[Rfam]
RNA: skipping-rope RNA
RNA sequence: GAGAAUCAGAGGACGGAACGGGCAGCCGUCGCCAGAUGGUCGAAUGACCUGAAUAGGAGAUGCAGGAAUGUCACCCUGCCUAUUCUC
Numbered sequence: 001g002a003g004a005a006u007c008a009g010a011g012g013a014c015g016g017a018a019c020g021g022g023c024a025g026c027c028g029u030c031g032c033c034a035g036a037u038g039g040u041c042g043a044a045u046g047a048c049c050u051g052a053a054u055a056g057g058a059g060a061u062g063c064a065g066g067a068a069u070g071u072c073a074c075c076c077u078g079c080c081u082a083u084u085c086u087c
Stems, first nucleotide, its partner, number of pairs: 001087006009080001012030005021072004032057001038049004062079005